RNA sequence: GCUCUCCCAGCUCUGCAUGGUUGCACUAGGCUACACUCGUGUGACUUUCGUAAUGUGGAGAGAAAGAAAAGAUCUCCUCGGGACCUCGGAUUAGCCUUUCAGUGGCUUCUCUUUCCUUGAGGGGUGCGACAGGU
Numbered sequence: 001g002c003u004c005u006c007c008c009a010g011c012u013c014u015g016c017a018u019g020g021u022u023g024c025a026c027u028a029g030g031c032u033a034c035a036c037u038c039g040u041g042u043g044a045c046u047u048u049c050g051u052a053a054u055g056u057g058g059a060g061a062g063a064a065a066g067a068a069a070a071g072a073u074c075u076c077c078u079c080g081g082g083a084c085c086u087c088g089g090a091u092u093a094g095c096c097u098u099u100c101a102g103u104g105g106c107u108u109c110u111c112u113u114u115c116c117u118u119g120a121g122g123g124g125u126g127c128g129a130c131a132g133g134u
Stems, first nucleotide, its partner, number of pairs: 002066002005063002008060001011058002014055002019046008074124005080118003088112003093107004
Shown here is a 134-nucleotide RNA from Prolemur simus, a member of the family "Small nucleolar RNA SNORA64/SNORA10 family".
The literature on the family includes a 1999 paper in EMBO J by Narayanan et al., "Nucleolar localization signals of box H/ACA small nucleolar RNAs".
The base pairs follow the family's consensus structure, which is taken from published work.
The family is grouped with related families in Rfam's "SNORA64 clan".
From the family's description: This family belongs to the H/ACA class of small nucleolar RNAs (snoRNAs) which act as guides in the the modification of uridines to pseudouridines. This family includes the human snoRNAs U64 and ACA10 and mouse MBI-29.
It is annotated as an H/ACA-box small nucleolar RNA.